[Rfam]
RNA sequence: AGCGCAGAUCCGCUGAGUCGUACACAACGAGCCGGGGACCCAAUCUUCUCGGGGUGAAUCCGCGGGCACCGUCCCGUGGUAGGGCGACCUUUCCCGCCCGAAUCCGUCAGCUAACCCGGUAAGCGGUUGUGGAAGGAGUC
Numbered sequence: 001a002g003c004g005c006a007g008a009u010c011c012g013c014u015g016a017g018u019c020g021u022a023c024a025c026a027a028c029g030a031g032c033c034g035g036g037g038a039c040c041c042a043a044u045c046u047u048c049u050c051g052g053g054g055u056g057a058a059u060c061c062g063c064g065g066g067c068a069c070c071g072u073c074c075c076g077u078g079g080u081a082g083g084g085c086g087a088c089c090u091u092u093c094c095c096g097c098c099c100g101a102a103u104c105c106g107u108c109a110g111c112u113a114a115c116c117c118g119g120u121a122a123g124c125g126g127u128u129g130u131g132g133a134a135g136g137a138g139u140c
Stems, first nucleotide, its partner, number of pairs: 011125004018030003031120006041051001052105003060079006082099004

The family of this 140-nucleotide RNA from Plantactinospora sp. KBS50 is "c-di-AMP riboswitch aptamer (ydaO/yuaA leader)".
NCBI's taxonomy places the organism under Bacteria, Bacillati, Micromonosporales, Micromonosporaceae, Plantactinospora.
Rfam describes the family as follows. This family represents a conserved RNA structure found upstream of the ydaO and yuaA genes in Bacillus subtilis and related genes in other bacteria.
Rfam links the family to the GO terms regulation of gene expression and cyclic-di-AMP binding.